Histone 3' UTR stem-loop: a 46-nucleotide RNA sequence. The mRNAs of metazoan histone genes lack a poly-A tail. 3' end processing occurs at a site between a highly conserved stem-loop (modelled by this family) and a purine rich region around 20 nts downstream (the histone downstream element, or HDE). The stem-loop is bound by a 31 kDa stem-loop binding protein (SLBP - also termed the histone hairpin binding protein, or HBP). A reference for the family is Tan et al. (2013), "Structure of histone mRNA stem-loop, human stem-loop binding protein, and 3'hExo ternary complex", Science. By type it is a cis-regulatory element. Rfam 15.1 lists 44,596 matches to the family in 976 species.
RNA sequence: CCAAAGGCUCUUUUCAGAGCCACCCACAUGCGCGCUGAAAAGAUCU
Numbered sequence: 001c002c003a004a005a006g007g008c009u010c011u012u013u014u015c016a017g018a019g020c021c022a023c024c025c026a027c028a029u030g031c032g033c034g035c036u037g038a039a040a041a042g043a044u045c046u
Base pairs, nucleotide, nucleotide: 006021007020008019009018010017011016